[Rfam]
RNA sequence: UGUCUGUGAGAAGGUCGGAGUUUCCCAACGCUUGGGGUAUGACGGAUUUCUGUCAUACUACAGUGGGGCGAAAUUGCGCACUUACUCGCGGGCG
Dot-bracket structure: ((((((((........(.(((....(..((......(((((((((....))))))))).....))..)....))).).........))))))))
Numbered sequence: 001u002g003u004c005u006g007u008g009a010g011a012a013g014g015u016c017g018g019a020g021u022u023u024c025c026c027a028a029c030g031c032u033u034g035g036g037g038u039a040u041g042a043c044g045g046a047u048u049u050c051u052g053u054c055a056u057a058c059u060a061c062a063g064u065g066g067g068g069c070g071a072a073a074u075u076g077c078g079c080a081c082u083u084a085c086u087c088g089c090g091g092g093c094g
Stems, first nucleotide, its partner, number of pairs: 001094008017077001019075003026068001029065002037058009